[Rfam]
RNA sequence: GAGACAGCCUUGUAGGGCAGGACUUGCUUCAGUGGGGCUUUGGUGCUCAUUGAGUGUGCCCCUUGAGUUUGUCUGU
Numbered sequence: 001g002a003g004a005c006a007g008c009c010u011u012g013u014a015g016g017g018c019a020g021g022a023c024u025u026g027c028u029u030c031a032g033u034g035g036g037g038c039u040u041u042g043g044u045g046c047u048c049a050u051u052g053a054g055u056g057u058g059c060c061c062c063u064u065g066a067g068u069u070u071g072u073c074u075g076u
Stems, first nucleotide, its partner, number of pairs: 002074006009067004015061005022055002029053008037044002
RNA: mir-9229 microRNA precursor family